The record is a 107-nucleotide RNA from Caenorhabditis briggsae, which matches "mir-36 microRNA precursor family" in Rfam. A reference for the family is Lim et al. (2003), "The microRNAs of Caenorhabditis elegans", Genes Dev. Lineage of the source: Eukaryota > Metazoa > Chromadorea > Rhabditomorpha > Caenorhabditis.
[Rfam]
RNA sequence: UCUGUAUCCCCUACCCUCACCCCAGCGGGUUUUCAUCGCAGUGAUAUGACGCAUUCAAACCAUUUCUUAUCACCGGGUGUCAAUCAGCUAGGGUGUGGGCGCGGGUA
Numbered sequence: 001u002c003u004g005u006a007u008c009c010c011c012u013a014c015c016c017u018c019a020c021c022c023c024a025g026c027g028g029g030u031u032u033u034c035a036u037c038g039c040a041g042u043g044a045u046a047u048g049a050c051g052c053a054u055u056c057a058a059a060c061c062a063u064u065u066c067u068u069a070u071c072a073c074c075g076g077g078u079g080u081c082a083a084u085c086a087g088c089u090a091g092g093g094u095g096u097g098g099g100c101g102c103g104g105g106u107a
Stems, first nucleotide, its partner, number of pairs: 016097001018095005024089003028085004034079004039075001041073006